A member of the RNA family "nhaA-I RNA" from Sphingobium phenoxybenzoativorans, 52 nucleotides long. The source organism's lineage runs through Bacteria, Pseudomonadati, Alphaproteobacteria, Sphingomonadales and Sphingobium. Pairs were carried over by alignment from the consensus structure, which is taken from published work. Acidobacteria, Alphaproteobacteria, Betaproteobacteria and Gammaproteobacteria, Verrucomicrobia, cand. division NC10. It scores 48 bits against the family's covariance model.

RNA sequence: GGGUGUCCGCAGUUGCGCAGGCAGGUUUAUGCUGUUGGUCGGGCCGCCAGCG
Numbered sequence: 001g002g003g004u005g006u007c008c009g010c011a012g013u014u015g016c017g018c019a020g021g022c023a024g025g026u027u028u029a030u031g032c033u034g035u036u037g038g039u040c041g042g043g044c045c046g047c048c049a050g051c052g
Stems, first nucleotide, its partner, number of pairs: 005022003008017003033052007